[Rfam]
RNA sequence: UGCGGACAAGGGCUCUGACUUCAUUGCACUACUGUACUUCCCAACUAGCAGUGCAAUAGUAUUGUCAAAGCACUUGCAAGCAGA
Numbered sequence: 001u002g003c004g005g006a007c008a009a010g011g012g013c014u015c016u017g018a019c020u021u022c023a024u025u026g027c028a029c030u031a032c033u034g035u036a037c038u039u040c041c042c043a044a045c046u047a048g049c050a051g052u053g054c055a056a057u058a059g060u061a062u063u064g065u066c067a068a069a070g071c072a073c074u075u076g077c078a079a080g081c082a083g084a
Base pairs, nucleotide, nucleotide: 002081003080007076008075009074010073012071013070014069016067017066018065019064023057024056025055026054027053028052029051030050034042